[Rfam]
A member of the RNA family "mir-259 microRNA precursor family" from Caenorhabditis elegans, 76 nucleotides long. A reference for the family is Ambros et al. (2003), "MicroRNAs and other tiny endogenous RNAs in C. elegans", Curr Biol. The family's consensus secondary structure was predicted with RNAalifold.
RNA sequence: AAACGAGUAAAUCUCAUCCUAAUCUGGUAGCAUCUUUCGAACCUUGCCACCGAUUUGGCAUGGGAUUGACUUGUUA
Numbered sequence: 001a002a003a004c005g006a007g008u009a010a011a012u013c014u015c016a017u018c019c020u021a022a023u024c025u026g027g028u029a030g031c032a033u034c035u036u037u038c039g040a041a042c043c044u045u046g047c048c049a050c051c052g053a054u055u056u057g058g059c060a061u062g063g064g065a066u067u068g069a070c071u072u073g074u075u076a
Stems, first nucleotide, its partner, number of pairs: 003074006010067007018058002021055004026051003030047002